[Rfam]
RNA sequence: GGGAGAUUAACUCAGUUGGCUAGAGUGACUCGCUUACAACGAGUAAGUCGGGGGUUCGAGUCCCUCAUCUCCCA
Number, nucleotide and partner (000 for none) at each position: 001g073002g072003g071004a070005g069006a068007u067008u000009a000010a026011c025012u024013c023014a000015g000016u000017u000018g000019g000020c000021u000022a000023g013024a012025g011026u010027g000028a044029c043030u042031c041032g040033c000034u000035u000036a000037c000038a000039a000040c032041g031042a030043g029044u028045a000046a000047g000048u000049c000050g066051g065052g064053g063054g062055u000056u000057c000058g000059a000060g000061u000062c054063c053064c052065u051066c050067a007068u006069c005070u004071c003072c002073c001074a000
The record is a 74-nucleotide RNA from Phototrophicus methaneseepsis, which matches "tRNA" in Rfam.
Rfam classes the family as a transfer RNA.
A search with the family's covariance model found it, with a score of 69 bits.
NCBI's taxonomy places the organism under Bacteria, Chloroflexota, Candidatus Thermofontia, Phototrophicaceae, Phototrophicus.